[Rfam]
The family of this 121-nucleotide RNA sequence from Olmediella betschleriana is "Plastid-psbA-1 3UTR RNA". The source organism's lineage runs through Eukaryota, Streptophytina, rosids, Flacourtieae and Olmediella. It is annotated as a cis-regulatory element. On this family, see Richter et al., Plant Commun 2023: "Retrograde signaling in plants: A critical review focusing on the GUN pathway and beyond".
RNA sequence: UGUCGAAGUUCCAUCUACAAAUGGAUAAGACUUUUGUCUUAGUGUGUACGAGCUCUUAAAAAAAAAAGGAGCAAUCGCCAAUUUCUUGUUCUAUCAAGAGGGUUGGCAUUGCUCCUUUUUU
Number, nucleotide and partner (000 for none) at each position: 001u000002g000003u000004c000005g000006a000007a000008g000009u000010u025011c024012c023013a022014u021015c000016u000017a000018c000019a000020a000021a014022u013023g012024g011025a010026u000027a000028a000029g000030a000031c000032u000033u000034u000035u000036g000037u000038c000039u000040u000041a000042g000043u000044g000045u000046g000047u000048a000049c000050g000051a000052g000053c000054u000055c000056u000057u000058a000059a000060a000061a000062a000063a000064a000065a118066a117067a116068g115069g114070a113071g112072c111073a110074a109075u108076c000077g000078c000079c000080a103081a000082u000083u100084u099085c098086u097087u096088g000089u000090u000091c000092u000093a000094u000095c000096a087097a086098g085099a084100g083101g000102g000103u080104u000105g000106g000107c000108a075109u074110u073111g072112c071113u070114c069115c068116u067117u066118u065119u000120u000121u000